[Rfam]
RNA: Bacterial large subunit ribosomal RNA, nucleotides 2616 to 2862
RNA sequence: UAGAAAUUUGAAGGGAGCUGACUUUAGUACGAGAGGACCGAGUCGGACAAACCUCUAGUGCACCUGUUGUGGCGCCAGCUGCAUCGCAGGGUAGCUAUGUUUGGAUGAGAUAAGCGCUGAAAGCAUAUAAGCGCGAAACUCGCCCUAAGAUGAGAUUUCUUUUAAGGGUCGUUCGAGAUCAGGACGUUGAUAGGCUACAGGUGUAAAGGCAGUAAUGUCAUAGCCGAGUAGUACUAAUUACCCGUAA
Numbered sequence: 001u002a003g004a005a006a007u008u009u010g011a012a013g014g015g016a017g018c019u020g021a022c023u024u025u026a027g028u029a030c031g032a033g034a035g036g037a038c039c040g041a042g043u044c045g046g047a048c049a050a051a052c053c054u055c056u057a058g059u060g061c062a063c064c065u066g067u068u069g070u071g072g073c074g075c076c077a078g079c080u081g082c083a084u085c086g087c088a089g090g091g092u093a094g095c096u097a098u099g100u101u102u103g104g105a106u107g108a109g110a111u112a113a114g115c116g117c118u119g120a121a122a123g124c125a126u127a128u129a130a131g132c133g134c135g136a137a138a139c140u141c142g143c144c145c146u147a148a149g150a151u152g153a154g155a156u157u158u159c160u161u162u163u164a165a166g167g168g169u170c171g172u173u174c175g176a177g178a179u180c181a182g183g184a185c186g187u188u189g190a191u192a193g194g195c196u197a198c199a200g201g202u203g204u205a206a207a208g209g210c211a212g213u214a215a216u217g218u219c220a221u222a223g224c225c226g227a228g229u230a231g232u233a234c235u236a237a238u239u240a241c242c243c244g245u246a247a
Stems, first nucleotide, its partner, number of pairs: 002160008012146004018046007048103005056097003063090005068083006107141003114134005166243004170186005191236003194232005200225002204220001208219004